[Rfam]
RNA sequence: AACAGUUACUGAUACCGAAACACGGGCGUCGAGGCAACUCUACGCCCGUGUGCUUAUGUCAAGGGUAAUCCAGAAUGG
Numbered sequence: 001a002a003c004a005g006u007u008a009c010u011g012a013u014a015c016c017g018a019a020a021c022a023c024g025g026g027c028g029u030c031g032a033g034g035c036a037a038c039u040c041u042a043c044g045c046c047c048g049u050g051u052g053c054u055u056a057u058g059u060c061a062a063g064g065g066u067a068a069u070c071c072a073g074a075a076u077g078g
Stems, first nucleotide, its partner, number of pairs: 003017001005015001020051009031040003
RNA: tpke11
Organism: Proteus mirabilis